[Rfam]
RNA sequence: ACAGGGUCGAUUCGUCCCCUGCGGAUGGUCUGGCAGGCAUAGCGGCAAAAAACCGGGCGGAAACGGCCGGAUGGCGAAGC
Numbered sequence: 001a002c003a004g005g006g007u008c009g010a011u012u013c014g015u016c017c018c019c020u021g022c023g024g025a026u027g028g029u030c031u032g033g034c035a036g037g038c039a040u041a042g043c044g045g046c047a048a049a050a051a052a053c054c055g056g057g058c059g060g061a062a063a064c065g066g067c068c069g070g071a072u073g074g075c076g077a078a079g080c
Stems, first nucleotide, its partner, number of pairs: 002021005053070004058065002
RNA: RAGATH-28 RNA